[Rfam]
The family of this 58-nucleotide sequence from Lentibacillus cibarius is "Ribosomal protein L13 leader". The base pairs follow the family's consensus structure, which was predicted with CMfinder. Taxonomically the source falls in Lentibacillus (Bacteria, Bacillota, Bacilli, Caryophanales). Rfam links the family to the GO term regulation of gene expression.
RNA sequence: GGCAUUUUAUUUUGAACCACGAUUAGCCCCGGAAACUAAUUGUGAUGAAAUAUAAAAA
Numbered sequence: 001g002g003c004a005u006u007u008u009a010u011u012u013u014g015a016a017c018c019a020c021g022a023u024u025a026g027c028c029c030c031g032g033a034a035a036c037u038a039a040u041u042g043u044g045a046u047g048a049a050a051u052a053u054a055a056a057a058a
Stems, first nucleotide, its partner, number of pairs: 006054001008052005018044009